RNA sequence: UGCUCUAAGUGUAGACUUAGAGGAAGAAGAUUGUUGUCAACAGUCCAGAGCAGAUUUCUUCCAGAAAUCCACGA
Numbered sequence: 001u002g003c004u005c006u007a008a009g010u011g012u013a014g015a016c017u018u019a020g021a022g023g024a025a026g027a028a029g030a031u032u033g034u035u036g037u038c039a040a041c042a043g044u045c046c047a048g049a050g051c052a053g054a055u056u057u058c059u060u061c062c063a064g065a066a067a068u069c070c071a072c073g074a
Stems, first nucleotide, its partner, number of pairs: 003022008053069006

Shown here is a 74-nucleotide RNA, a member of the family "RT-6 RNA". Rfam's curators put it in the seed alignment. The family's RNA type in Rfam is small RNA.